RNA sequence: GGACGGUUAGCAGGCAAGAUGUCGGCAUAGCUGAUGUAAGUAAAUAAUUCGGCUGUGUCACAUCGAGCCAACCUAACGUCUA
Numbered sequence: 001g002g003a004c005g006g007u008u009a010g011c012a013g014g015c016a017a018g019a020u021g022u023c024g025g026c027a028u029a030g031c032u033g034a035u036g037u038a039a040g041u042a043a044a045u046a047a048u049u050c051g052g053c054u055g056u057g058u059c060a061c062a063u064c065g066a067g068c069c070a071a072c073c074u075a076a077c078g079u080c081u082a
Stems, first nucleotide, its partner, number of pairs: 006077005013069003018064004024059008
RNA: mir-31 microRNA precursor family